[Rfam]
Shown here is a 65-nucleotide RNA sequence from Scleropages formosus, a member of the family "Selenocysteine insertion sequence 1". The match comes from Rfam's covariance-model search (41 bits). Rfam describes the family as follows. The incorporation of selenocysteine into a protein sequence is directed by an in-frame UGA codon (usually a stop codon) within the coding region of the mRNA. Selenoprotein mRNAs contain a conserved secondary structure in the 3' UTR that is required for the distinction of UGA stop from UGA selenocysteine. The selenocysteine insertion sequence (SECIS) is around 60 nt in length and adopts a hairpin structure which is sufficiently well-defined and conserved to act as a computational screen for selenoprotein genes. NCBI's taxonomy places the organism under Eukaryota, Euteleostomi, Actinopteri, Teleostei, Scleropages.
RNA sequence: GUGGCAUAAUGAAGGCCUGCGCUGCAAACAGCUUGCUGUAGGUGCUGGCUGGAUGUCUCUGCCAC
Numbered sequence: 001g002u003g004g005c006a007u008a009a010u011g012a013a014g015g016c017c018u019g020c021g022c023u024g025c026a027a028a029c030a031g032c033u034u035g036c037u038g039u040a041g042g043u044g045c046u047g048g049c050u051g052g053a054u055g056u057c058u059c060u061g062c063c064a065c
Stems, first nucleotide, its partner, number of pairs: 001065005014050004019045005029038003
Dot-bracket structure: (((((........((((.(((((.....(((....)))..))))).))))..........)))))